[Rfam]
RNA sequence: UGGCACUUUUAAACCUCUUUCUUGCUACUGUUAGUUUGAAAGACAAAAAAGAGUGCAAGAGUAACUGUGAAUUCCAAGGUUGUUGACACUGAUUGUUUACAACCAUUUCACCUCACAAACAGUU
Dot-bracket structure: ..((((.(((.....((((((..((........))..))))))..)))....))))...(((...(((((.......((((((..((.......))..))))))........)))).)...)))
Rfam assigns this 124-nucleotide sequence from Chionoecetes opilio to the family "Small nucleolar RNA SNORA14".
A search with the family's covariance model found it, with a score of 50 bits.
Rfam describes the family as follows. ACA14 is a member of the H/ACA class of snoRNA that guide the sites of modification of uridines to pseudouridines.
By type it is an H/ACA-box small nucleolar RNA.